[Rfam]
RNA sequence: CUGGCUUCAGUGCUGGGGAGUGGCCCCUGGGCGGGCCACUGCUCUGGCCCAUCCUGGGGCCCACACUCUCGCUCCGGGCUCA
Numbered sequence: 001c002u003g004g005c006u007u008c009a010g011u012g013c014u015g016g017g018g019a020g021u022g023g024c025c026c027c028u029g030g031g032c033g034g035g036c037c038a039c040u041g042c043u044c045u046g047g048c049c050c051a052u053c054c055u056g057g058g059g060c061c062c063a064c065a066c067u068c069u070c071g072c073u074c075c076g077g078g079c080u081c082a
Stems, first nucleotide, its partner, number of pairs: 003080003007077002010074001012072002015069004020064004025059007033050005